RNA sequence: UAGUGGUCGACGGAGCUCCCUUUUAUCCAACUCAGGAAGGAAAGAAGGUGUUUACAUCUGCUAGUUCAUGAAUACCUUUGUGUGCGCAGGUUAGGAGAUAUGAUGCGCAGCUUAAGGGUGUGCAUGAACCAGGAGAUGAGAUAGCCUUGUUCUUUCCUUACUUGGAUUGAAGGGAGCUCCAAUGGCCUCUCUU
Number, nucleotide and partner (000 for none) at each position: 001u000002a000003g000004u000005g000006g000007u000008c000009g000010a000011c000012g000013g179014a178015g177016c176017u175018c174019c173020c172021u000022u000023u169024u000025a167026u166027c165028c164029a163030a000031c000032u000033c000034a000035g000036g156037a000038a000039g000040g000041a000042a000043a000044g000045a000046a000047g000048g000049u000050g000051u000052u000053u000054a000055c000056a000057u000058c135059u134060g000061c132062u131063a000064g000065u000066u000067c126068a125069u124070g123071a000072a000073u000074a000075c118076c000077u000078u000079u000080g000081u000082g000083u000084g000085c000086g000087c000088a000089g000090g000091u000092u000093a000094g000095g000096a000097g000098a000099u000100a000101u000102g000103a000104u000105g000106c000107g000108c000109a000110g000111c000112u000113u000114a000115a000116g000117g000118g075119u000120g000121u000122g000123c070124a069125u068126g067127a000128a000129c000130c000131a062132g061133g000134a059135g058136a000137u000138g000139a000140g000141a000142u000143a000144g000145c000146c000147u000148u000149g000150u000151u000152c000153u000154u000155u000156c036157c000158u000159u000160a000161c000162u000163u029164g028165g027166a026167u025168u000169g023170a000171a000172g020173g019174g018175a017176g016177c015178u014179c013180c000181a000182a000183u000184g000185g000186c000187c000188u000189c000190u000191c000192u000193u000

MIR159 microRNA precursor family: a 193-nucleotide RNA sequence from Tetracentron sinense. Gene Ontology terms of the family: miRNA-mediated post-transcriptional gene silencing and RISC complex. The family has 66 seed sequences and 3,649 matches in Rfam 15.1. The source organism's lineage runs through Eukaryota, Streptophyta, Mesangiospermae, Trochodendraceae and Tetracentron.